This 124-nucleotide RNA sequence from Ramlibacter humi belongs to the Rfam family "ZMP/ZTP riboswitch aptamer (pfl RNA motif)".
A search with the family's covariance model found it, with a score of 44 bits.
The base pairs follow the family's consensus structure, which is taken from published work.
Gene Ontology terms of the family: regulation of purine nucleotide biosynthetic process and one-carbon metabolic process.

[Rfam]
Nucleotides: 124
Stems, first nucleotide, its partner, number of pairs: 005083001007081006015073002017112005058069004101119001103117003
Number, partner (000 for none) and nucleotide at each position: 001000u002000c003000c004000c005083c006000c007081g008080c009079a010078c011077g012076c013000g014000a015073c016072u017112g018111g019110c020109g021108a022000u023000a024000g025000g026000c027000g028000c029000g030000g031000c032000g033000c034000c035000c036000g037000u038000a039000c040000c041000g042000g043000g044000c045000c046000g047000c048000c049000c050000g051000c052000g053000c054000c055000g056000a057000c058069g059068u060067g061066g062000g063000g064000c065000a066061c067060c068059a069058c070000u071000g072016g073015g074000a075000a076012g077011c078010g079009u080008g081007c082000c083005g084000c085000c086000g087000g088000c089000a090000a091000a092000g093000c094000c095000g096000g097000c098000g099000a100000u101119c102000a103117g104116c105115c106000g107000u108021u109020c110019g111018c112017c113000u114000g115105g116104g117103c118000a119101g120000c121000c122000c123000u124000u